[Rfam]
The family of this 105-nucleotide sequence from Chryseobacterium sp. FH1 is "Flavo-1 RNA". The match comes from Rfam's covariance-model search (74 bits). Rfam classes the family as a small RNA. NCBI's taxonomy places the organism under Bacteria, Bacteroidota, Flavobacteriia, Flavobacteriales, Chryseobacterium.

RNA sequence: CCCUAGCCCCGAUUGCAGUGGAAAUCCUUUUUUGCGUUUACCGAAAGUUCUCUUUAGAGGGAAAUCGUCUUGCAAAAAAGAUUGCAACGGAAAGCGGGAUCAAGC
Numbered sequence: 001c002c003c004u005a006g007c008c009c010c011g012a013u014u015g016c017a018g019u020g021g022a023a024a025u026c027c028u029u030u031u032u033u034g035c036g037u038u039u040a041c042c043g044a045a046a047g048u049u050c051u052c053u054u055u056a057g058a059g060g061g062a063a064a065u066c067g068u069c070u071u072g073c074a075a076a077a078a079a080g081a082u083u084g085c086a087a088c089g090g091a092a093a094g095c096g097g098g099a100u101c102a103a104g105c
Stems, first nucleotide, its partner, number of pairs: 009097003013093002018088002023083004029078008